[Rfam]
RNA sequence: GUCUCUGAGGAUUAUCUAAACAAACUUGCGUUCUGCUGAGGUUUCAUUAAUCUGUGCGCAGAAAACUGGAGACCUGAACUCAAGAGAC
Numbered sequence: 001g002u003c004u005c006u007g008a009g010g011a012u013u014a015u016c017u018a019a020a021c022a023a024a025c026u027u028g029c030g031u032u033c034u035g036c037u038g039a040g041g042u043u044u045c046a047u048u049a050a051u052c053u054g055u056g057c058g059c060a061g062a063a064a065a066c067u068g069g070a071g072a073c074c075u076g077a078a079c080u081c082a083a084g085a086g087a088c
Base pairs, nucleotide, nucleotide: 003086004085005084006083
RNA: Small nucleolar RNA Z159/U59